[Rfam]
RNA sequence: UUAUACUAAUUAGGCUGUCCAAAGACAGCAGGUGCAUUUUGCGCAAAGGGUUUUUCCCGCCUGCCGAGGAAAGCAAAGGAUUUCACUUAAAGUGUUACUUUUGCCUUUUCCGCGGUAAAUGCGGAAAAGGCUUUUUUGUUGCAAUC
Numbered sequence: 001u002u003a004u005a006c007u008a009a010u011u012a013g014g015c016u017g018u019c020c021a022a023a024g025a026c027a028g029c030a031g032g033u034g035c036a037u038u039u040u041g042c043g044c045a046a047a048g049g050g051u052u053u054u055u056c057c058c059g060c061c062u063g064c065c066g067a068g069g070a071a072a073g074c075a076a077a078g079g080a081u082u083u084c085a086c087u088u089a090a091a092g093u094g095u096u097a098c099u100u101u102u103g104c105c106u107u108u109u110c111c112g113c114g115g116u117a118a119a120u121g122c123g124g125a126a127a128a129g130g131c132u133u134u135u136u137u138g139u140u141g142c143a144a145u146c
Stems, first nucleotide, its partner, number of pairs: 028064006034042003103131012